[Rfam]
RNA sequence: AUCCAUGACUCCAUGGGGGCUGCCGCCCGUGGCUGUUUCCCUUCCUAGGCAUGGAAGAGCAGCGUCUUGCUAAUUGGCAAAACUCAUACCCGCUGUGGGUAUUAGUCGUUGACUGUAGCAAGGCACAAGC
Numbered sequence: 001a002u003c004c005a006u007g008a009c010u011c012c013a014u015g016g017g018g019g020c021u022g023c024c025g026c027c028c029g030u031g032g033c034u035g036u037u038u039c040c041c042u043u044c045c046u047a048g049g050c051a052u053g054g055a056a057g058a059g060c061a062g063c064g065u066c067u068u069g070c071u072a073a074u075u076g077g078c079a080a081a082a083c084u085c086a087u088a089c090c091c092g093c094u095g096u097g098g099g100u101a102u103u104a105g106u107c108g109u110u111g112a113c114u115g116u117a118g119c120a121a122g123g124c125a126c127a128a129g130c
Stems, first nucleotide, its partner, number of pairs: 002055006015041004020035001022033003068127002074121003077116002080114001083105002088100004
Shown here is a 130-nucleotide sequence from Upupa epops, a member of the family "Small nucleolar RNA SNORA24". Rfam 15.1 lists 852 matches to the family in 501 species. The family's consensus secondary structure was predicted with RNAfold. It scores 57 bits against the family's covariance model. Rfam's curators write: ACA24 is a member of the H/ACA class of snoRNA that guide the sites of modification of uridines to pseudouridines.